[Rfam]
RNA sequence: CACAUCGUAUGACAACGAAAGAGAGCACGCUUGUACACAGCCAUGUCUCCCAGCAUGGAUGCCGACUAGUGUGCUCUCUCUCGCUGUCAGAUUACG
Numbered sequence: 001c002a003c004a005u006c007g008u009a010u011g012a013c014a015a016c017g018a019a020a021g022a023g024a025g026c027a028c029g030c031u032u033g034u035a036c037a038c039a040g041c042c043a044u045g046u047c048u049c050c051c052a053g054c055a056u057g058g059a060u061g062c063c064g065a066c067u068a069g070u071g072u073g074c075u076c077u078c079u080c081u082c083g084c085u086g087u088c089a090g091a092u093u094a095c096g
Base pairs, nucleotide, nucleotide: 010089011088012087013086014085016083017082020079021078023076025074026073027072028071029070030069031068033066034065
Description
The record is a 96-nucleotide RNA from Punica granatum, which matches "MIR535 microRNA precursor family" in Rfam. Its family is annotated with miRNA-mediated post-transcriptional gene silencing and RISC complex in the Gene Ontology. The match comes from Rfam's covariance-model search (69 bits). For this family Rfam cites "Conservation and divergence of microRNAs and their functions in Euphorbiaceous plants" (Zeng et al., Nucleic Acids Res, 2010).